[Rfam]
RNA sequence: UGAGACACCCAUCAAAGGAGUCAUCCCCUAUUUAGGGACUACCUUAUCAUAUUCCGAAUUC
Numbered sequence: 001u002g003a004g005a006c007a008c009c010c011a012u013c014a015a016a017g018g019a020g021u022c023a024u025c026c027c028c029u030a031u032u033u034a035g036g037g038a039c040u041a042c043c044u045u046a047u048c049a050u051a052u053u054c055c056g057a058a059u060u061c
Stems, first nucleotide, its partner, number of pairs: 017045002020042002024038004
RNA: Plastid-psbN 5UTR RNA
Organism: Gossypium anomalum